[Rfam]
RNA sequence: GGUGGGAUGUGAUAAAAAAUACGAAAUCUCUAAGGCAAUUUGCUCUGCAGAUAAAAAUGUAUUUGCACGUCAGUCUGAUCCUGUU
Numbered sequence: 001g002g003u004g005g006g007a008u009g010u011g012a013u014a015a016a017a018a019a020u021a022c023g024a025a026a027u028c029u030c031u032a033a034g035g036c037a038a039u040u041u042g043c044u045c046u047g048c049a050g051a052u053a054a055a056a057a058u059g060u061a062u063u064u065g066c067a068c069g070u071c072a073g074u075c076u077g078a079u080c081c082u083g084u085u
Stems, first nucleotide, its partner, number of pairs: 001085007
RNA: Small nucleolar RNA Z122
Organism: Capsella rubella